[Rfam]
Description: Shown here is a 55-nucleotide RNA sequence from Coregonus sp. 'balchen', a member of the family "UnaL2 LINE 3' element". The eel long interspersed element (LINE) UnaL2 and its partner short interspersed element (SINE) share a conserved 3' tail containing a stem-loop that is critical for their retrotransposition. Presumably, the first step of retrotransposition is the recognition of their 3' tails by UnaL2-encoded reverse transcriptase. The solution structure of a 17-nucleotide RNA derived from the 3' tail of UnaL2 was determined by NMR. Its family is annotated with transposition, RNA-mediated in the Gene Ontology. Pairs were carried over by alignment from the consensus structure, which is taken from published work.
RNA sequence: UGUAAGCACUAACUGUAAGUCGCUCUGGAUGAGAGCGUCUGCUAAAUGACAAUUU
Numbered sequence: 001u002g003u004a005a006g007c008a009c010u011a012a013c014u015g016u017a018a019g020u021c022g023c024u025c026u027g028g029a030u031g032a033g034a035g036c037g038u039c040u041g042c043u044a045a046a047u048g049a050c051a052a053u054u055u
Stems, first nucleotide, its partner, number of pairs: 014044001015042003021037006
Dot-bracket structure: .............((((...((((((.....))))))..))).)...........